[Rfam]
RNA: Bacterial RNase P class A
RNA sequence: AAUGCAGGUUGUUCUAUCGCUGUUCCAAUUUAGUUGGGAGAGAGGAAAGUCCGGGCAACGUAGGGCAUCUCGCUUUCUAACGGAAAGGAAUUUAGGAUUGAAAACCUGAAUUACGGAAAGUGCAACAGAAAAUAUACCGUCUUGAUUUAUCGAGAUAAGGGUGAAAACGUGCGGUAAGAGCGCCCGACAAUUGUAGGCGACUGCAGUUGAUUGUAAACCCCGAGAGUUGAAAGACCAAAUAGGCUAACAUCCUAGUUUUAAUUAGGAUAAAGGGCUGCCCGUCCGAUGUUAGUGGGUAGGUCGUUAGAGAUAGACGGCAACGUUUAUAGUGGAUUAAUGAUAGAAAUUCUAAGCAAUUAGAAAACAGAACCCGGCUUAUAGACCUGCAUUUUUU
Numbered sequence: 001a002a003u004g005c006a007g008g009u010u011g012u013u014c015u016a017u018c019g020c021u022g023u024u025c026c027a028a029u030u031u032a033g034u035u036g037g038g039a040g041a042g043a044g045g046a047a048a049g050u051c052c053g054g055g056c057a058a059c060g061u062a063g064g065g066c067a068u069c070u071c072g073c074u075u076u077c078u079a080a081c082g083g084a085a086a087g088g089a090a091u092u093u094a095g096g097a098u099u100g101a102a103a104a105c106c107u108g109a110a111u112u113a114c115g116g117a118a119a120g121u122g123c124a125a126c127a128g129a130a131a132a133u134a135u136a137c138c139g140u141c142u143u144g145a146u147u148u149a150u151c152g153a154g155a156u157a158a159g160g161g162u163g164a165a166a167a168c169g170u171g172c173g174g175u176a177a178g179a180g181c182g183c184c185c186g187a188c189a190a191u192u193g194u195a196g197g198c199g200a201c202u203g204c205a206g207u208u209g210a211u212u213g214u215a216a217a218c219c220c221c222g223a224g225a226g227u228u229g230a231a232a233g234a235c236c237a238a239a240u241a242g243g244c245u246a247a248c249a250u251c252c253u254a255g256u257u258u259u260a261a262u263u264a265g266g267a268u269a270a271a272g273g274g275c276u277g278c279c280c281g282u283c284c285g286a287u288g289u290u291a292g293u294g295g296g297u298a299g300g301u302c303g304u305u306a307g308a309g310a311u312a313g314a315c316g317g318c319a320a321c322g323u324u325u326a327u328a329g330u331g332g333a334u335u336a337a338u339g340a341u342a343g344a345a346a347u348u349c350u351a352a353g354c355a356a357u358u359a360g361a362a363a364a365c366a367g368a369a370c371c372c373g374g375c376u377u378a379u380a381g382a383c384c385u386g387c388a389u390u391u392u393u394u
Stems, first nucleotide, its partner, number of pairs: 001390010011379001012345007020042002023039006047377003051374005056229004063280004068225005073087005088114001089112008115220002120218002122214003137160002139156007168186002171183003189208008233302004243293006272284004310327007